[Rfam]
RNA sequence: UCCGAAAACGGCAAACCAACCGCGAGGCUGGGACGCAAAGCCACGGAUCUCUUCGAGAUCGCCGGGCUACCGAAG
Numbered sequence: 001u002c003c004g005a006a007a008a009c010g011g012c013a014a015a016c017c018a019a020c021c022g023c024g025a026g027g028c029u030g031g032g033a034c035g036c037a038a039a040g041c042c043a044c045g046g047a048u049c050u051c052u053u054c055g056a057g058a059u060c061g062c063c064g065g066g067c068u069a070c071c072g073a074a075g
Stems, first nucleotide, its partner, number of pairs: 001075001003072002011036002016031003020027002034061001039068004044064003047059003

Annotation: c-di-GMP-I-GGC riboswitch aptamer: a 75-nucleotide RNA from Rubripirellula lacrimiformis. The match comes from Rfam's covariance-model search (69 bits). For this family Rfam cites "Bioinformatic analysis of riboswitch structures uncovers variant classes with altered ligand specificity" (Weinberg et al., Proc Natl Acad Sci U S A, 2017). The family is grouped with related families in Rfam's "c-di-GMP_I riboswitch clan".